[Rfam]
RNA sequence: UUGAAGCUAUAACAAAUGGAUAAGACUCGGUCUUAGUUAGUGUAUAGGAGGUUUUGAAAAGAGAAUAUAAAUAUAAGGAGCAAUAAACUCUUUCUUCUUCUAUCAAGAGGGAUUAUUGCUCCUUU
Numbered sequence: 001u002u003g004a005a006g007c008u009a010u011a012a013c014a015a016a017u018g019g020a021u022a023a024g025a026c027u028c029g030g031u032c033u034u035a036g037u038u039a040g041u042g043u044a045u046a047g048g049a050g051g052u053u054u055u056g057a058a059a060a061g062a063g064a065a066u067a068u069a070a071a072u073a074u075a076a077g078g079a080g081c082a083a084u085a086a087a088c089u090c091u092u093u094c095u096u097c098u099u100c101u102a103u104c105a106a107g108a109g110g111g112a113u114u115a116u117u118g119c120u121c122c123u124u125u
Base pairs, nucleotide, nucleotide: 008020009017010016075124076123077122078121079120080119081118082117083116084115085114086113088111089110092109093108094107095106096105
Notes:
This 125-nucleotide RNA from Striga hermonthica belongs to the Rfam family "Plastid-psbA-1 3UTR RNA". NCBI's taxonomy places the organism under Eukaryota, Tracheophyta, Gunneridae, Buchnereae, Striga. From the family's description: Plastid psbA-1 is a non-coding RNA (ncRNA) present in plastids. It was identified in inverted repeat sequences in the 3 prime untranslate region (3UTR) of photosystem II quinone-binding protein (psbA). The base pairs follow the family's consensus structure, which was predicted with LocARNA.